[Rfam]
RNA sequence: AAUCAAGUCGGCCAAACCCAUCGCGAGGUGGGGACGGAAAGCUUCGGGUCUUCUAAAAAUAAAAACGAAGAUAGCCGGGUUGCAGCU
Numbered sequence: 001a002a003u004c005a006a007g008u009c010g011g012c013c014a015a016a017c018c019c020a021u022c023g024c025g026a027g028g029u030g031g032g033g034a035c036g037g038a039a040a041g042c043u044u045c046g047g048g049u050c051u052u053c054u055a056a057a058a059a060u061a062a063a064a065a066c067g068a069a070g071a072u073a074g075c076c077g078g079g080u081u082g083c084a085g086c087u
Base pairs, nucleotide, nucleotide: 012037013036017032018031019030020029021028022027040081041080042079043078045077046076047075048072049071050070

About this RNA:
Shown here is an 87-nucleotide RNA sequence from Idiomarina sp. MD25a, a member of the family "c-di-GMP-I riboswitch aptamer". The family's consensus secondary structure is taken from published work. Rfam describes the family as follows. GEMM was predicted in a large-scale screen for bacterial structured RNA regulatory elements. NCBI's taxonomy places the organism under Bacteria, Pseudomonadati, Gammaproteobacteria, Alteromonadales, Idiomarina. It scores 57 bits against the family's covariance model.